Rfam assigns this 53-nucleotide RNA sequence from Phaseolus vulgaris to the family "Plastid-atpF group II-D1 intron". Rfam links the family to the GO term Group II intron splicing. Lineage of the source: Eukaryota > Streptophyta > rosids > Papilionoideae > Phaseolus.
[Rfam]
RNA sequence: AGAUUUUUGUUCGAUAUAAAACACUCAUGUCGAUAAAAUGUCUUGAAUCCUAU
Numbered sequence: 001a002g003a004u005u006u007u008u009g010u011u012c013g014a015u016a017u018a019a020a021a022c023a024c025u026c027a028u029g030u031c032g033a034u035a036a037a038a039u040g041u042c043u044u045g046a047a048u049c050c051u052a053u
Stems, first nucleotide, its partner, number of pairs: 011033007

The family has 49 seed sequences and 1,372 matches in Rfam 15.1.